[Rfam]
Nucleotides: 290
Base pairs, nucleotide, nucleotide: 001290002289003288004287008283009282010281014243015242016241017240018239019238020237022061024059025058026057035049036048037047038046039045070273071272072271073270074269080218081217082216083215090104091103092102093101094100105120106119107118108117109116110115121214122213123212124211125210126209141200142199244261245260246259247258248257249256
Number, partner (000 for none) and nucleotide at each position: 001290a002289g003288u004287g005000a006000c007000a008283g009282u010281a011000a012000u013000g014243c015242u016241c017240a018239c019238a020237a021000u022061a023000a024059g025058g026057g027000c028000g029000a030000c031000a032000c033000a034000c035049a036048g037047g038046u039045a040000c041000u042000u043000g044000u045039u046038a047037c048036u049035u050000g051000a052000u053000c054000u055000a056000g057026c058025c059024c060000c061022u062000g063000g064000g065000a066000a067000g068000g069000u070273c071272u072271g073270a074269g075000a076000c077000g078000a079000a080218g081217g082216u083215c084000g085000a086000a087000c088000a089000a090104u091103c092102c093101u094100c095000u096000a097000g098000c099000a100094g101093g102092g103091g104090a105120c106119u107118u108117c109116a110115g111000a112000a113000a114000a115110c116109u117108g118107g119106g120105g121214g122213u123212g124211a125210u126209g127000c128000a129000c130000c131000a132000g133000a134000a135000a136000c137000a138000u139000g140000g141200c142199u143000g144000a145000g146000u147000a148000g149000a150000a151000u152000u153000c154000g155000a156000u157000u158000c159000a160000g161000g162000c163000a164000a165000g166000u167000g168000a169000a170000a171000c172000u173000g174000a175000u176000a177000g178000u179000u180000g181000a182000u183000g184000c185000u186000c187000u188000g189000g190000g191000u192000u193000c194000u195000a196000c197000a198000u199142g200141g201000u202000u203000g204000g205000a206000a207000a208000u209126c210125a211124u212123c213122a214121u215083g216082g217081c218080u219000g220000g221000c222000a223000a224000c225000a226000a227000u228000a229000a230000g231000u232000u233000c234000a235000a236000u237020u238019u239018g240017u241016g242015a243014g244261g245260u246259g247258a248257u249256a250000c251000g252000g253000g254000u255000a256249u257248a258247u259246c260245a261244u262000a263000a264000c265000u266000c267000a268000a269074u270073u271072c272071a273070g274000a275000c276000u277000a278000c279000u280000c281010u282009a283008c284000u285000g286000a287004c288003a289002c290001u
Rfam assigns this 290-nucleotide RNA from Lottia gigantea to the family "Nuclear RNase P". Lineage of the source: Eukaryota > Metazoa > Bilateria > Protostomia > Lottia. Rfam classes the family as a ribozyme.